[Rfam]
RNA sequence: CCCUCCUACAAAGGUGUCUGUGGCUCCCUGUCUUUGGGACACGUAAGAAUUGGAGGCAAAGAAAGGUGGAUUUGGAGGAAUCUGGAGCCUGCUUGUUCGCCACAGGCUUAAGAUCAACCACCCCACACAG
Numbered sequence: 001c002c003c004u005c006c007u008a009c010a011a012a013g014g015u016g017u018c019u020g021u022g023g024c025u026c027c028c029u030g031u032c033u034u035u036g037g038g039a040c041a042c043g044u045a046a047g048a049a050u051u052g053g054a055g056g057c058a059a060a061g062a063a064a065g066g067u068g069g070a071u072u073u074g075g076a077g078g079a080a081u082c083u084g085g086a087g088c089c090u091g092c093u094u095g096u097u098c099g100c101c102a103c104a105g106g107c108u109u110a111a112g113a114u115c116a117a118c119c120a121c122c123c124c125a126c127a128c129a130g
Stems, first nucleotide, its partner, number of pairs: 002056005015041005022028002068123002072120001091107006
Background
This 130-nucleotide RNA sequence from Tupaia belangeri belongs to the Rfam family "Small nucleolar RNA SNORA38". Rfam's curators write: ACA38 is a member of the H/ACA class of snoRNA that guide the sites of modification of uridines to pseudouridines. The match comes from Rfam's covariance-model search (122 bits). Pairs were carried over by alignment from the consensus structure, which was predicted with RNAfold. The family's RNA type in Rfam is H/ACA-box small nucleolar RNA.